[Rfam]
RNA sequence: GGUAUGUAUAGGGGCGCGGAAAUCAUCAGUACCACAGCCUGUGGGAAAGGGAAAUCUGCCGAAAGCGUUUUGCGCUUGGGCUUGCAUCGAAUAGGUGCAAGACUGUUUUUGAAGCCCGCCAAGCUUCAAAAGAGCACUAUGAUAUAC
Numbered sequence: 001g002g003u004a005u006g007u008a009u010a011g012g013g014g015c016g017c018g019g020a021a022a023u024c025a026u027c028a029g030u031a032c033c034a035c036a037g038c039c040u041g042u043g044g045g046a047a048a049g050g051g052a053a054a055u056c057u058g059c060c061g062a063a064a065g066c067g068u069u070u071u072g073c074g075c076u077u078g079g080g081c082u083u084g085c086a087u088c089g090a091a092u093a094g095g096u097g098c099a100a101g102a103c104u105g106u107u108u109u110u111g112a113a114g115c116c117c118g119c120c121a122a123g124c125u126u127c128a129a130a131a132g133a134g135c136a137c138u139a140u141g142a143u144a145u146a147c
Base pairs, nucleotide, nucleotide: 007141008140009139010138011137016059017058018057019056020055023052024051032044033043034042035041036040063077064076065075066074067073068072078104079103081101082100083099084098085097086096087095088094106132107131108130109129110128111127112126113125114124